A member of the RNA family "mir-3473 microRNA precursor family" from Octodon degus, 81 nucleotides long. The base pairs follow the family's consensus structure, which was predicted with RNAalifold. Taxonomically the source falls in Octodon (Eukaryota, Gnathostomata, Euteleostomi, Tetrapoda).
RNA sequence: ACCACUGAGCCAUCUCACCAGCCCUAAAGGUUGUCCUUUUAAAAAAUUAUUAAGGGGGGGCUGGAGAGAUGGCUCAGUGGU
Number, nucleotide and partner (000 for none) at each position: 001a000002c080003c079004a078005c077006u076007g075008a074009g073010c072011c071012a070013u069014c068015u067016c066017a000018c064019c063020a062021g061022c060023c059024c058025u000026a000027a000028a000029g000030g000031u000032u000033g000034u000035c000036c000037u000038u000039u000040u000041a000042a000043a000044a000045a000046a000047u000048u000049a000050u000051u000052a000053a000054g000055g000056g000057g000058g024059g023060g022061c021062u020063g019064g018065a000066g016067a015068g014069a013070u012071g011072g010073c009074u008075c007076a006077g005078u004079g003080g002081u000
The family has 5 seed sequences and 1,094 matches in Rfam 15.1. It scores 74 bits against the family's covariance model. Its family is annotated with RISC complex, cellular response to mechanical stimulus and miRNA-mediated post-transcriptional gene silencing in the Gene Ontology.